RNA sequence: UCCACUGUGAGAUGGAAUCUGAAGGAAGUCGGCGGCAAAGCUCUGGUCUGAGGAACACGAACUACAUAUAAAGCAUAUGCGCGAUGGGUGAGUUUGCCAAACAAAACGUAGCCCAAAACUAUCCAAAGUGUGUGGUGUAACUACCUAAUAGUUUGAAACAGAUAGUCACCUGA
Number, nucleotide and partner (000 for none) at each position: 001u016002c015003c014004a013005c000006u011007g000008u000009g000010a000011g006012a000013u004014g003015g002016a001017a000018u000019c000020u000021g000022a000023a000024g000025g000026a000027a000028g000029u173030c172031g171032g170033c000034g000035g166036c165037a000038a000039a000040g000041c000042u158043c000044u156045g000046g153047u000048c151049u150050g149051a000052g000053g000054a000055a000056c000057a000058c000059g000060a000061a000062c000063u147064a146065c000066a000067u143068a000069u000070a000071a000072a000073g138074c137075a136076u000077a000078u134079g133080c132081g131082c130083g129084a000085u000086g114087g113088g112089u111090g000091a000092g107093u106094u105095u104096g000097c000098c000099a000100a000101a000102c000103a000104a095105a094106a093107c092108g000109u000110a000111g089112c088113c087114c086115a000116a000117a000118a000119c000120u000121a000122u000123c000124c000125a000126a000127a000128g000129u083130g082131u081132g080133u079134g078135g000136u075137g074138u073139a000140a000141c000142u000143a067144c000145c000146u064147a063148a000149u050150a049151g048152u000153u046154u000155g000156a044157a000158a042159c000160a000161g000162a000163u000164a000165g036166u035167c000168a000169c000170c032171u031172g030173a029
Shown here is a 173-nucleotide sequence from Sporomusa malonica, a member of the family "Group II catalytic intron D1-D4-3". Pairs were carried over by alignment from the consensus structure. Rfam describes the family as follows. Group II introns are found in rRNA, tRNA and mRNA of organelles in fungi, plants and protists, and also in mRNA in bacteria.